RNA sequence: AUCUGAGACCCGACCACAACGGAUCGUCCGGCACGUACCUGCCGGUGGAGGGAAACACUC
Numbered sequence: 001a002u003c004u005g006a007g008a009c010c011c012g013a014c015c016a017c018a019a020c021g022g023a024u025c026g027u028c029c030g031g032c033a034c035g036u037a038c039c040u041g042c043c044g045g046u047g048g049a050g051g052g053a054a055a056c057a058c059u060c
Stems, first nucleotide, its partner, number of pairs: 010052002014048003028045006